Rfam assigns this 58-nucleotide RNA sequence from Orthohepacivirus hominis to the family "Hepatitis C virus stem-loop SL8001 RNA". On this family, see Pirakitikulr et al., Mol Cell 2016: "The Coding Region of the HCV Genome Contains a Network of Regulatory RNA Structures". The base pairs follow the family's consensus structure, which was predicted with RNAfold. NCBI's taxonomy places the organism under Viruses, Orthornavirae, Kitrinoviricota, Hepaciviridae, Orthohepacivirus. Even though Hepatitis C virus (HCV) SL8001 is not required for overall replication, conformational changes in this motif tune the initial rate of replication.
RNA sequence: UUGUCCGGCAAGGCCGUUAACCAGAUCCGCUCCGUCUGGGAGGACUUGCUGGAAGACU
Numbered sequence: 001u002u003g004u005c006c007g008g009c010a011a012g013g014c015c016g017u018u019a020a021c022c023a024g025a026u027c028c029g030c031u032c033c034g035u036c037u038g039g040g041a042g043g044a045c046u047u048g049c050u051g052g053a054a055g056a057c058u
Stems, first nucleotide, its partner, number of pairs: 004053009014043002021039006